Shown here is a 199-nucleotide RNA from Paenibacillus methanolicus, a member of the family "c-di-AMP riboswitch aptamer (ydaO/yuaA leader)". Gene Ontology terms of the family: cyclic-di-AMP binding and regulation of gene expression. NCBI's taxonomy places the organism under Bacteria, Bacillota, Bacilli, Caryophanales, Paenibacillus. For this family Rfam cites "New RNA motifs suggest an expanded scope for riboswitches in bacterial genetic control" (Barrick et al., Proc Natl Acad Sci U S A, 2004).
RNA sequence: UGAAGAUUAUAGCCGAAUUUCGUAUGAAAACGGGGGAACCAUAAAGCUGUCCGGCAAUGCGCGCUUCGCGGCUUGCAUAAGGAUGGCAUGGGGUGAAUUUCGCGUCUUGGACCGCAAAGUCCGGGGUGUAGCGCGAAUAGGGCCGCCUUUCCAGGCCCGAAUCCGUCAGCUAACCUCGUAGGCGAAUGUGGAAUGGGAC
Numbered sequence: 001u002g003a004a005g006a007u008u009a010u011a012g013c014c015g016a017a018u019u020u021c022g023u024a025u026g027a028a029a030a031c032g033g034g035g036g037a038a039c040c041a042u043a044a045a046g047c048u049g050u051c052c053g054g055c056a057a058u059g060c061g062c063g064c065u066u067c068g069c070g071g072c073u074u075g076c077a078u079a080a081g082g083a084u085g086g087c088a089u090g091g092g093g094u095g096a097a098u099u100u101c102g103c104g105u106c107u108u109g110g111a112c113c114g115c116a117a118a119g120u121c122c123g124g125g126g127u128g129u130a131g132c133g134c135g136a137a138u139a140g141g142g143c144c145g146c147c148u149u150u151c152c153a154g155g156c157c158c159g160a161a162u163c164c165g166u167c168a169g170c171u172a173a174c175c176u177c178g179u180a181g182g183c184g185a186a187u188g189u190g191g192a193a194u195g196g197g198a199c
Stems, first nucleotide, its partner, number of pairs: 012183003018029003030179006040090002091164003099137007140158004